[Rfam]
RNA sequence: CCCUCUUAUUAAGGUAUGUUUUUGGUUUCCUGUCUUUGAACACAAAAGAAUUGGAGAAAAAGAAGUGUGGAUUUGGAGAAGUCUGGGACUAUCUUGCUCUUUCAGAUUCAGGGUCAACCAUCCCACAAAG
Number, nucleotide and partner (000 for none) at each position: 001c000002c000003c056004u055005c054006u053007u000008a000009u000010u000011a000012a000013g000014g000015u044016a000017u042018g041019u040020u039021u038022u000023u000024g030025g029026u000027u000028u000029c025030c024031u000032g000033u000034c000035u000036u000037u000038g021039a020040a019041c018042a017043c000044a015045a000046a000047a000048g000049a000050a000051u000052u000053g006054g005055a004056g003057a000058a000059a000060a000061a000062g000063a000064a000065g000066u000067g000068u000069g123070g122071a121072u000073u120074u000075g000076g000077a000078g000079a000080a000081g000082u000083c000084u000085g000086g000087g000088a000089c000090u000091a108092u000093c000094u105095u104096g103097c000098u000099c000100u000101u000102u000103c096104a095105g094106a000107u000108u091109c000110a000111g000112g000113g000114u000115c000116a000117a000118c000119c000120a073121u071122c070123c069124c000125a000126c000127a000128a000129a000130g000
About this RNA: Shown here is a 130-nucleotide sequence from Sciurus carolinensis, a member of the family "Small nucleolar RNA SNORA38". Pairs were carried over by alignment from the consensus structure, which was predicted with RNAfold. Rfam describes the family as follows. ACA38 is a member of the H/ACA class of snoRNA that guide the sites of modification of uridines to pseudouridines.